About this RNA:
Shown here is a 146-nucleotide RNA sequence from Plasmodium gonderi, a member of the family "small nucleolar RNA snoR27". The organism belongs to Plasmodium, within Eukaryota. A reference for the family is Chakrabarti et al. (2007), "Structural RNAs of known and unknown function identified in malaria parasites by comparative genomics and RNA analysis", RNA. By type it is an H/ACA-box small nucleolar RNA.
[Rfam]
RNA sequence: UGUGCUGGUUUAGCCACAGUGACACAUUUGACUUAAAAAUUUUGUGCAGACUGCUAGAAAUCAGCUAUAUUAAUCUCAUAAUUUUAGGAACCAUUGAUAAAAUUCGUUAAAAUUUUUCUUAGUGGGCCGUAUUUAUGAAUACAAUU
Numbered sequence: 001u002g003u004g005c006u007g008g009u010u011u012a013g014c015c016a017c018a019g020u021g022a023c024a025c026a027u028u029u030g031a032c033u034u035a036a037a038a039a040u041u042u043u044g045u046g047c048a049g050a051c052u053g054c055u056a057g058a059a060a061u062c063a064g065c066u067a068u069a070u071u072a073a074u075c076u077c078a079u080a081a082u083u084u085u086a087g088g089a090a091c092c093a094u095u096g097a098u099a100a101a102a103u104u105c106g107u108u109a110a111a112a113u114u115u116u117u118c119u120u121a122g123u124g125g126g127c128c129g130u131a132u133u134u135a136u137g138a139a140u141a142c143a144a145u146u
Base pairs, nucleotide, nucleotide: 004065005064006063007062008061009060010059011058017053018052019051020050023046024045076138077137078136079135087128088127091124096119099116100115101114102113103112104111